Rfam assigns this 76-nucleotide sequence from Acetobacterium paludosum to the family "c-di-GMP-I riboswitch aptamer".
[Rfam]
RNA sequence: UGAAUAUUAAGGCAAAACUGUUGCGAAACAGUGACGCAAAGCUAGAGGGACUUUUGUAAGUCAGCCAGUUACGAAA
Numbered sequence: 001u002g003a004a005u006a007u008u009a010a011g012g013c014a015a016a017a018c019u020g021u022u023g024c025g026a027a028a029c030a031g032u033g034a035c036g037c038a039a040a041g042c043u044a045g046a047g048g049g050a051c052u053u054u055u056g057u058a059a060g061u062c063a064g065c066c067a068g069u070u071a072c073g074a075a076a
Stems, first nucleotide, its partner, number of pairs: 012037002017032006040070004047066002049062003